[Rfam]
A member of the RNA family "sodF sRNA" from Streptomyces sp. 150FB, 88 nucleotides long. It scores 81 bits against the family's covariance model. The literature on the family includes a 2014 paper in Nucleic Acids Res by Kim et al., "Inverse regulation of Fe- and Ni-containing SOD genes by a Fur family regulator Nur through small RNA processed from 3'UTR of the sodF mRNA". Gene Ontology terms of the family: negative regulation of translation, mRNA binding and regulation of mRNA stability.
Nucleotides: 088
Stems, first nucleotide, its partner, number of pairs: 002042002005040005012034004018028001050088011062076004
Number, partner (000 for none) and nucleotide at each position: 001000a002042c003041g004000u005040c006039c007038u008037g009036c010000u011000c012034g013033u014032g015031a016000u017000c018028g019000u020000c021000u022000u023000c024000u025000c026000a027000c028018c029000c030000u031015u032014c033013a034012c035000g036009g037008c038007g039006g040005g041003c042002g043000g044000a045000a046000c047000a048000a049000c050088g051087a052086a053085g054084g055083a056082c057081c058080c059079c060078c061000a062076c063075g064074a065073g066000g067000a068000c069000a070000u071000g072000a073065c074064u075063c076062g077000c078060g079059g080058g081057g082056g083055u084054c085053c086052u087051u088050c